[Rfam]
This 109-nucleotide sequence from Peptoclostridium acidaminophilum belongs to the Rfam family "Glycine riboswitch aptamer". The organism belongs to Peptoclostridium acidaminophilum, within Bacteria.

RNA sequence: GCGAUGGAUAUGGAAGAGAGCCUUGCUAAAAGGCCGCCGAAGGGACAAGUCUUGAUUUACCCAAAAGGAUCAAGGUGAAAUUCUCAGGCAAAAGGACCAUAUUCGGACA
Dot-bracket structure: .....((((((((......((((.......)))).(((((..(((...((((((((((........))))))))))....))))).))).......)))))))).....